[Rfam]
RNA: MIR7502 microRNA precursor family
RNA sequence: UGUUAAAAAUUUCAUCUAUUUAUACUAUUAAAAAUUGGAAUGACUAACAGAACAACAAGGCAGUGAUGCUCGGCGUGCCAUGUGUAUCUCAUAUUGAUGUACAUGAAUCGACAUUUAAUAGUAGAAAUGGAUGAAAUUUUUAACA
Numbered sequence: 001u002g003u004u005a006a007a008a009a010u011u012u013c014a015u016c017u018a019u020u021u022a023u024a025c026u027a028u029u030a031a032a033a034a035u036u037g038g039a040a041u042g043a044c045u046a047a048c049a050g051a052a053c054a055a056c057a058a059g060g061c062a063g064u065g066a067u068g069c070u071c072g073g074c075g076u077g078c079c080a081u082g083u084g085u086a087u088c089u090c091a092u093a094u095u096g097a098u099g100u101a102c103a104u105g106a107a108u109c110g111a112c113a114u115u116u117a118a119u120a121g122u123a124g125a126a127a128u129g130g131a132u133g134a135a136a137u138u139u140u141u142a143a144c145a
Base pairs, nucleotide, nucleotide: 002144003143004142005141006140007139008138009137010136011135012134013133014132015131016130018128019127020126021125023123024122025121026120028118029117030116031115032114